Source information: This 147-nucleotide RNA from Vitreoscilla filiformis belongs to the Rfam family "Group II catalytic intron D1-D4-3". On this family, see Bonen and Vogel, Trends Genet 2001: "The ins and outs of group II introns". Pairs were carried over by alignment from the consensus structure. A search with the family's covariance model found it, with a score of 39 bits.
RNA sequence: GUCGCCGCGAGGCGGGCUAGAGGAAAAAGGUGCGAGGCGACGAGAAACCACACAAAGGGGGGCCUCAGACGCGAGACGAGCCGGCACUGGAUGGUGAAGUACCCGUGGUACAGCGUCUAGGCUGGAUGUGGCGCUUGUGUAUCGACA
Numbered sequence: 001g002u003c004g005c006c007g008c009g010a011g012g013c014g015g016g017c018u019a020g021a022g023g024a025a026a027a028a029g030g031u032g033c034g035a036g037g038c039g040a041c042g043a044g045a046a047a048c049c050a051c052a053c054a055a056a057g058g059g060g061g062g063c064c065u066c067a068g069a070c071g072c073g074a075g076a077c078g079a080g081c082c083g084g085c086a087c088u089g090g091a092u093g094g095u096g097a098a099g100u101a102c103c104c105g106u107g108g109u110a111c112a113g114c115g116u117c118u119a120g121g122c123u124g125g126a127u128g129u130g131g132c133g134c135u136u137g138u139g140u141a142u143c144g145a146c147a
Base pairs, nucleotide, nucleotide: 002015003014004013005012006011029143030142031141032140033139034138035136036135037134038133039132048131049130050129051128052127061123062122063121065119067118068117069116070115071114072113076100077099080095081094082093083092